RNA sequence: UACGUUCAUCUUUAGUACGCAAAAGCCGAACAAGACGGAAGUAAGGAGUUCUCCUGAAGGAACGCGCC
Numbered sequence: 001u002a003c004g005u006u007c008a009u010c011u012u013u014a015g016u017a018c019g020c021a022a023a024a025g026c027c028g029a030a031c032a033a034g035a036c037g038g039a040a041g042u043a044a045g046g047a048g049u050u051c052u053c054c055u056g057a058a059g060g061a062a063c064g065c066g067c068c
Stems, first nucleotide, its partner, number of pairs: 003064005009035004038065001044055003
This 68-nucleotide RNA sequence from Myxacorys almedinensis belongs to the Rfam family "Glutamine riboswitch aptamer (glnA leader)". It scores 49 bits against the family's covariance model. The literature on the family includes a 2011 paper in RNA Biol by Ames and Breaker, "Bacterial aptamers that selectively bind glutamine". Lineage of the source: Bacteria > Bacillati > Cyanophyceae > Leptolyngbyaceae > Myxacorys almedinensis.